This 78-nucleotide RNA from Muraenolepis orangiensis belongs to the Rfam family "mir-17 microRNA precursor family". The family's consensus secondary structure was predicted with RNAalifold. The family has 234 seed sequences and 4,687 matches in Rfam 15.1. From the family's description: This family represents the microRNA (miRNA) precursor mir-17, family, which includes mir-20, mir-91, and mir-103. miRNAs are transcribed as ~70nt precursors (modelled here) and subsequently processed by the Dicer enzyme to give a ~22nt product. In this case the mature sequence comes from the 3' arm of the precursor. The extents of the hairpin precursors are not generally known and are estimated based on hairpin prediction. Lineage of the source: Eukaryota > Opisthokonta > Actinopteri > Euteleosteomorpha > Muraenolepis.
RNA sequence: UGAGCGGCCCUAAAGUGCUUAUAGUGCAGGUAGUGUUGUCUGCAUCUACUGCAAUGUGAGCACUUGAAGUUCUUCUCA
Numbered sequence: 001u002g003a004g005c006g007g008c009c010c011u012a013a014a015g016u017g018c019u020u021a022u023a024g025u026g027c028a029g030g031u032a033g034u035g036u037u038g039u040c041u042g043c044a045u046c047u048a049c050u051g052c053a054a055u056g057u058g059a060g061c062a063c064u065u066g067a068a069g070u071u072c073u074u075c076u077c078a
Stems, first nucleotide, its partner, number of pairs: 004075001006073002010069002013065011025053003029050005